Guanidine-II riboswitch aptamer (mini-ykkC): a 49-nucleotide RNA sequence from Sorghum bicolor. The family's consensus secondary structure is taken from published work. The family has 72 seed sequences and 1,589 matches in Rfam 15.1.
RNA sequence: GUUUGAGGACGACCUCACACCUUUUACUCUUAGUUUGAGGACGACCUCA
Numbered sequence: 001g002u003u004u005g006a007g008g009a010c011g012a013c014c015u016c017a018c019a020c021c022u023u024u025u026a027c028u029c030u031u032a033g034u035u036u037g038a039g040g041a042c043g044a045c046c047u048c049a
Base pairs, nucleotide, nucleotide: 001020002019004017005016006015007014008013036049037048038047039046040045